Overview:
A member of the RNA family "SAM-I/IV (S-adenosyl methionine) riboswitch aptamer" from Lentisphaera araneosa, 103 nucleotides long. Its Rfam clan is "SAM clan". Taxonomically the source falls in Lentisphaera araneosa (Bacteria, Lentisphaerota, Lentisphaerales, Lentisphaeraceae). A reference for the family is Trausch et al. (2014), "Structural basis for diversity in the SAM clan of riboswitches", PNAS.

RNA sequence: AAGGUACAUCAAGACGAUCGAGAGAUCGAGCAACCGGGGUCAGUCCCACGGUGCUAAGCGAAGUUCGCAGAUGUGCAGAUUUAAUCUGAAAAAAUACUGGAGA
Number, nucleotide and partner (000 for none) at each position: 001a000002a000003g000004g000005u000006a074007c073008a072009u071010c070011a000012a000013g000014a000015c028016g027017a026018u025019c024020g000021a000022g000023a000024g019025a018026u017027c016028g015029a055030g054031c053032a000033a000034c051035c050036g049037g047038g046039g045040u000041c100042a000043g098044u000045c039046c038047c037048a000049c036050g035051g034052u000053g031054c030055u029056a000057a000058g000059c000060g000061a000062a000063g000064u000065u000066c000067g000068c000069a000070g010071a009072u008073g007074u006075g000076c088077a087078g086079a085080u000081u000082u000083a000084a000085u079086c078087u077088g076089a000090a000091a000092a000093a000094a000095u000096a000097c000098u043099g000100g041101a000102g000103a000